Annotation:
Shown here is a 140-nucleotide RNA sequence from Garciella nitratireducens, a member of the family "Ribosomal protein L10 leader". A reference for the family is Yakhnin et al. (2015), "Ribosomal protein L10(L12)4 autoregulates expression of the Bacillus subtilis rplJL operon by a transcription attenuation mechanism", Nucleic Acids Res. Gene Ontology term of the family: regulation of gene expression. Pairs were carried over by alignment from the consensus structure, which was predicted with CMfinder. NCBI's taxonomy places the organism under Bacteria, Eubacteriales, Eubacteriaceae, Garciella, Garciella nitratireducens.

RNA sequence: AAAUAAAGAAUUCUUGAACCGUAGACAGUAGGUGCUAAAAGCUUAAUUUCCUACCGAGGGGAUGGGUCUAAUAUGUUCAUAAAAUGAUAAUAGAGCCUUUCUUCGAUUUUGUCUGCGGAGAGGGCUUUUUUUAUGGAAAA
Numbered sequence: 001a002a003a004u005a006a007a008g009a010a011u012u013c014u015u016g017a018a019c020c021g022u023a024g025a026c027a028g029u030a031g032g033u034g035c036u037a038a039a040a041g042c043u044u045a046a047u048u049u050c051c052u053a054c055c056g057a058g059g060g061g062a063u064g065g066g067u068c069u070a071a072u073a074u075g076u077u078c079a080u081a082a083a084a085u086g087a088u089a090a091u092a093g094a095g096c097c098u099u100u101c102u103u104c105g106a107u108u109u110u111g112u113c114u115g116c117g118g119a120g121a122g123g124g125c126u127u128u129u130u131u132u133a134u135g136g137a138a139a140a
Stems, first nucleotide, its partner, number of pairs: 028054005034042003095125004100121006